Rfam assigns this 62-nucleotide RNA sequence to the family "cow-rumen-1 RNA".
[Rfam]
RNA sequence: AGAACGGUUGCUGAGUAAAGCUUAACAGCGUAAAAAACCGUCGCCGGACACGAUCGAAGAGG
Number, nucleotide and partner (000 for none) at each position: 001a000002g000003a000004a041005c040006g039007g038008u000009u030010g029011c028012u027013g026014a022015g021016u020017a000018a000019a000020g016021c015022u014023u000024a000025a000026c013027a012028g011029c010030g009031u000032a000033a000034a000035a000036a000037a000038c007039c006040g005041u004042c000043g000044c000045c000046g000047g000048a000049c000050a000051c000052g000053a000054u000055c000056g000057a000058a000059g000060a000061g000062g000
The base pairs follow the family's consensus structure, which is taken from published work.